[Rfam]
RNA sequence: GUGCAAAUGACGAGAAUUACCUUUUGGUUUGAGAAGCUUGCGAGCGAUGUUGCACCUCAUACUUCCAUGACUCUGAUGCAU
Numbered sequence: 001g002u003g004c005a006a007a008u009g010a011c012g013a014g015a016a017u018u019a020c021c022u023u024u025u026g027g028u029u030u031g032a033g034a035a036g037c038u039u040g041c042g043a044g045c046g047a048u049g050u051u052g053c054a055c056c057u058c059a060u061a062c063u064u065c066c067a068u069g070a071c072u073c074u075g076a077u078g079c080a081u
Stems, first nucleotide, its partner, number of pairs: 001081005036045003
Dot-bracket structure: (((((..............................(((....)))...............................)))))

Rfam assigns this 81-nucleotide sequence from Prunus persica to the family "Small nucleolar RNA R72". For this family Rfam cites "The high diversity of snoRNAs in plants: identification and comparative study of 120 snoRNA genes from Oryza sativa" (Chen et al., Nucleic Acids Res, 2003). The match comes from Rfam's covariance-model search (43 bits). Gene Ontology terms of the family: nucleolus and RNA processing. The family's RNA type in Rfam is C/D-box small nucleolar RNA. Pairs were carried over by alignment from the consensus structure, which was predicted with PFOLD. NCBI's taxonomy places the organism under Eukaryota, Embryophyta, Spermatophyta, rosids, Prunus. Rfam describes the family as follows. snoR72 is a C/D box small nucleolar RNA, which acts as a methylation guide for 25S ribosomal RNA in Arabidopsis.